[Rfam]
Shown here is a 196-nucleotide sequence from Oceanobacillus zhaokaii, a member of the family "Group II catalytic intron D1-D4-5". From the family's description: Group II introns are found in rRNA, tRNA and mRNA of organelles in fungi, plants and protists, and also in mRNA in bacteria. A search with the family's covariance model found it, with a score of 43 bits. Rfam links the family to the GO term Group II intron splicing. Pairs were carried over by alignment from the consensus structure. On this family, see Bonen and Vogel, Trends Genet 2001: "The ins and outs of group II introns". Taxonomically the source falls in Oceanobacillus (Bacteria, Bacillati, Caryophanales, Bacillaceae).

RNA sequence: CUGAAGGAUUAUAUCGCAUAAUUAAAUGUGGAGUAACACUCAGAGGGGGUCUCUCUAAAUCGAUUAGCGCUAGAAUUAAAAAGGAUGGUAAUGUUAAAAGCUCGGUGAAAAGGUGUGAGAAACUCUAGCGUACCAUUACGGCUGAGGAAUGCCUACUCGAUGGAUUGGUGUAAUUCAUGAUGCUUGAUUUAAAUGG
Numbered sequence: 001c002u003g004a005a006g007g008a009u010u011a012u013a014u015c016g017c018a019u020a021a022u023u024a025a026a027u028g029u030g031g032a033g034u035a036a037c038a039c040u041c042a043g044a045g046g047g048g049g050u051c052u053c054u055c056u057a058a059a060u061c062g063a064u065u066a067g068c069g070c071u072a073g074a075a076u077u078a079a080a081a082a083g084g085a086u087g088g089u090a091a092u093g094u095u096a097a098a099a100g101c102u103c104g105g106u107g108a109a110a111a112g113g114u115g116u117g118a119g120a121a122a123c124u125c126u127a128g129c130g131u132a133c134c135a136u137u138a139c140g141g142c143u144g145a146g147g148a149a150u151g152c153c154u155a156c157u158c159g160a161u162g163g164a165u166u167g168g169u170g171u172a173a174u175u176c177a178u179g180a181u182g183c184u185u186g187a188u189u190u191a192a193a194u195g196g
Stems, first nucleotide, its partner, number of pairs: 018052001020050001022048002031041003054187002060105004064097006071090002075086003112184005120175002122171002124147003130142002151169003155166001157164002